Shown here is a 94-nucleotide RNA sequence from Desulfosporosinus sp. HMP52, a member of the family "Selenocysteine transfer RNA". The family's consensus secondary structure is taken from published work. The organism belongs to Desulfosporosinus, within Bacteria.

[Rfam]
RNA sequence: GGGGAUGGAUGGUGACUGGUGUUGCUCCCGGACUUCAAAUCCGCGUGUCGGGACGCAGAACGUUCCGAGGUGUGUUCGAUUCGCACACAUCCCC
Numbered sequence: 001g002g003g004g005a006u007g008g009a010u011g012g013u014g015a016c017u018g019g020u021g022u023u024g025c026u027c028c029c030g031g032a033c034u035u036c037a038a039a040u041c042c043g044c045g046u047g048u049c050g051g052g053a054c055g056c057a058g059a060a061c062g063u064u065c066c067g068a069g070g071u072g073u074g075u076u077c078g079a080u081u082c083g084c085a086c087a088c089a090u091c092c093c094c
Base pairs, nucleotide, nucleotide: 001094002093003092004091005090006089007088008086011026012025013024014023015022016021028045029043030042031041032040048068049067050066051065052064071085072084073083074082